Rfam assigns this 149-nucleotide RNA sequence from Rhizobium album to the family "Rhizobiales sRNA Atu_C7". The family's consensus secondary structure was predicted with WAR. For this family Rfam cites "Deep sequencing uncovers numerous small RNAs on all four replicons of the plant pathogen Agrobacterium tumefaciens" (Wilms et al., RNA Biol, 2012).

[Rfam]
RNA sequence: CGAUUAAUAUUUUCAUCAGCUUAAAGAGAUCAAGCUUAAAUGCCACGAGUUCUCCUGGCGCGUCCGAUAGCCGCAGGUGUUUCCUCCCUCUCCUGCCGGUGAUGCGCCCUCCUCGCCUCGCUUCUCGCACCACGAGAGCGAGGCUUUUU
Number, nucleotide and partner (000 for none) at each position: 001c000002g000003a000004u000005u000006a000007a000008u000009a000010u000011u000012u000013u000014c000015a000016u000017c000018a000019g000020c000021u000022u000023a000024a000025a000026g000027a000028g000029a000030u000031c000032a000033a000034g000035c000036u000037u000038a000039a000040a000041u000042g000043c000044c000045a000046c000047g000048a000049g000050u000051u000052c000053u000054c000055c000056u000057g108058g107059c106060g105061c104062g103063u102064c101065c000066g000067a000068u000069a000070g000071c000072c000073g096074c095075a094076g093077g092078u000079g090080u000081u000082u000083c000084c000085u000086c000087c000088c000089u000090c079091u000092c077093c076094u075095g074096c073097c000098g000099g000100u000101g064102a063103u062104g061105c060106g059107c058108c057109c000110u000111c000112c000113u000114c000115g144116c143117c142118u141119c140120g139121c138122u137123u136124c000125u000126c134127g000128c000129a000130c000131c000132a000133c000134g126135a000136g123137a122138g121139c120140g119141a118142g117143g116144c115145u000146u000147u000148u000149u000